This 63-nucleotide RNA sequence from Homo sapiens belongs to the Rfam family "U7 small nuclear RNA". It scores 40 bits against the family's covariance model. NCBI's taxonomy places the organism under Eukaryota, Eumetazoa, Bilateria, Hominoidea, Homo. The family's consensus secondary structure was predicted with PFOLD.
RNA sequence: UAGUGUUAGAUCUAGUGUUAGAAUUUGUCUAGCAAGCUUUCUGGUUUUGGCCAAAAAGCCACC
Numbered sequence: 001u002a003g004u005g006u007u008a009g010a011u012c013u014a015g016u017g018u019u020a021g022a023a024u025u026u027g028u029c030u031a032g033c034a035a036g037c038u039u040u041c042u043g044g045u046u047u048u049g050g051c052c053a054a055a056a057a058g059c060c061a062c063c
Base pairs, nucleotide, nucleotide: 036059037058038057039056040055042053043052044051045050
Dot-bracket structure: ...................................(((((.((((....)))).)))))....